Record summary: The family of this 218-nucleotide sequence from Capsella rubella is "Plant small nucleolar RNA U3".

[Rfam]
RNA sequence: ACGACCUUACUUGAACAGGAUCUGUUCUAUAGGCUUGUACCUCUGUAUCCUUGAUUUCUAAGGAGACAGGCUCUUAACCCUGGUUGAUGAACCAUGACCGUGCGAUCAGAGCGUGAUUAACGGCUACGAUCGUUCUCGGACGUUUCCGGUGCUGUAGAGGAUCGUUACUCGGCUAGGUUCUUCCUUGCCGGGGUGGUCGCACGGCGGUCUGACAGGUC
Dot-bracket structure: (((.(((.....((((((...))))))...))).).))....((((.((((((.....)))))).)))).........((((...............(((((((((((.((((......(((((..(((.((((....)))).)..))..))))).......)))).((((((.(((.....))).)))))).)))))))))))........))))..
On this family, see Zwieb, Nucleic Acids Res 1997: "The uRNA database".
Rfam describes the family as follows. Small nucleolar RNAs (snoRNAs) are involved in the processing and modification of rRNA in the nucleolus. There are two main classes of snoRNAs: the box C/D class, and the box H/ACA class.
By type it is a C/D-box small nucleolar RNA.